[Rfam]
RNA sequence: UUUAAGUGCUUCCAUAUUUUUCUGUACUCAAUUUUGAUCGUCCGUUUUAUUUGAAAGUUUUUCAAAAAGAAAUUAAAAACAUAAGUCACGCAUAAAGUAUUAUUCAUGUUUUAUCAUCUCAUAACAACAAAAGUACUAGUUAUAAAAUUUUUUUUAAAUAAAAUGAACUAUUAAAAUUAGGCAAAAAUGCACUUAAA
Numbered sequence: 001u002u003u004a005a006g007u008g009c010u011u012c013c014a015u016a017u018u019u020u021u022c023u024g025u026a027c028u029c030a031a032u033u034u035u036g037a038u039c040g041u042c043c044g045u046u047u048u049a050u051u052u053g054a055a056a057g058u059u060u061u062u063c064a065a066a067a068a069g070a071a072a073u074u075a076a077a078a079a080c081a082u083a084a085g086u087c088a089c090g091c092a093u094a095a096a097g098u099a100u101u102a103u104u105c106a107u108g109u110u111u112u113a114u115c116a117u118c119u120c121a122u123a124a125c126a127a128c129a130a131a132a133g134u135a136c137u138a139g140u141u142a143u144a145a146a147a148u149u150u151u152u153u154u155u156a157a158a159u160a161a162a163a164u165g166a167a168c169u170a171u172u173a174a175a176a177u178u179a180g181g182c183a184a185a186a187a188u189g190c191a192c193u194u195a196a197a
Base pairs, nucleotide, nucleotide: 027181028180030178031177032176033175034174035173036172037171038170040168041167043165044164045163046162047161048160049159050158051157052156